[Rfam]
RNA sequence: AGAACUGGAUGAGGUGCGGAAAUCAUGAGUACUUAUUUCAUAAAGACCUGUAAGUCUGAAAUAAGGAAAGGGAAAUCUGCCGAAAUGACUUGUUAUUUACAGAGAAUAAGUUGUUGGGUUGCAUAUGAACAAUAUGCAGACUGCCGUAAAGCGUGUGCUUAACGGAGUGCUUCCACUUGU
Number, nucleotide and partner (000 for none) at each position: 001a000002g000003a000004a000005c000006u175007g174008g173009a172010u000011g170012a000013g000014g000015u000016g080017c079018g078019g077020a076021a000022a000023u073024c072025a000026u000027g000028a000029g000030u000031a000032c065033u064034u063035a062036u061037u060038u059039c058040a000041u000042a000043a000044a000045g000046a000047c000048c000049u000050g000051u000052a000053a000054g000055u000056c000057u000058g039059a038060a037061a036062u035063a034064a033065g032066g000067a000068a000069a000070g000071g000072g024073a023074a000075a000076u020077c019078u018079g017080c016081c000082g000083a000084a115085a114086u113087g112088a111089c110090u109091u108092g107093u106094u105095a000096u000097u000098u000099a000100c000101a000102g000103a000104g000105a094106a093107u092108a091109a090110g089111u088112u087113g086114u085115u084116g142117g141118g000119u139120u138121g137122c136123a135124u134125a133126u132127g000128a000129a000130c000131a000132a126133u125134a124135u123136g122137c121138a120139g119140a000141c117142u116143g000144c165145c164146g163147u162148a000149a160150a159151g000152c000153g000154u000155g000156u000157g000158c000159u150160u149161a000162a147163c146164g145165g144166a000167g000168u000169g000170c011171u000172u009173c008174c007175a006176c000177u000178u000179g000180u000
Lysine riboswitch aptamer: a 180-nucleotide RNA sequence from Alkalibacterium pelagium. Pairs were carried over by alignment from the consensus structure, which is taken from published work. NCBI's taxonomy places the organism under Bacteria, Bacillota, Bacilli, Carnobacteriaceae, Alkalibacterium.